Rfam assigns this 84-nucleotide RNA from Clostridium tagluense to the family "pan motif".
The organism belongs to Clostridium, within Bacteria.
It scores 40 bits against the family's covariance model.
RNA sequence: UUGUCAGUAUUCAUUGUGAAACUGAACUAUAUAUAAGGAUUAUCAAUAUAAUCGACUUAUAUCCUUAUGGAAUAAGAGCGGAGG
Numbered sequence: 001u002u003g004u005c006a007g008u009a010u011u012c013a014u015u016g017u018g019a020a021a022c023u024g025a026a027c028u029a030u031a032u033a034u035a036a037g038g039a040u041u042a043u044c045a046a047u048a049u050a051a052u053c054g055a056c057u058u059a060u061a062u063c064c065u066u067a068u069g070g071a072a073u074a075a076g077a078g079c080g081g082a083g084g
Stems, first nucleotide, its partner, number of pairs: 001029001003027001004025005010020002053080002056076005062071003